[Rfam]
RNA sequence: AGAUGUCAGGGUCAAAAGGUCUGAAACCACGUGUGCUUGCACACUGGUGGUAGAAUGACCUUGAGACCCGCCCCGAUAUGAGCAUAAAAGUGGGAUGAUAAUCCCACGAUAUGCGAAUAUUGGGUAGGAUUGUGGGAGUGCGUAGCACGGAGCAAUCCGUUGGCAUCA
Numbered sequence: 001a002g003a004u005g006u007c008a009g010g011g012u013c014a015a016a017a018g019g020u021c022u023g024a025a026a027c028c029a030c031g032u033g034u035g036c037u038u039g040c041a042c043a044c045u046g047g048u049g050g051u052a053g054a055a056u057g058a059c060c061u062u063g064a065g066a067c068c069c070g071c072c073c074c075g076a077u078a079u080g081a082g083c084a085u086a087a088a089a090g091u092g093g094g095a096u097g098a099u100a101a102u103c104c105c106a107c108g109a110u111a112u113g114c115g116a117a118u119a120u121u122g123g124g125u126a127g128g129a130u131u132g133u134g135g136g137a138g139u140g141c142g143u144a145g146c147a148c149g150g151a152g153c154a155a156u157c158c159g160u161u162g163g164c165a166u167c168a
Base pairs, nucleotide, nucleotide: 002167003166004165005164006163007162010068011067012066013065016062017061018060019059020058021057026051027050028049029048030047031044032043033042034041035040072124073123074122075121076120077119078118079117082114083113084112085111090107091106092105093104094103095102096101127158128157129156130155131154132153133152138148139147140146141145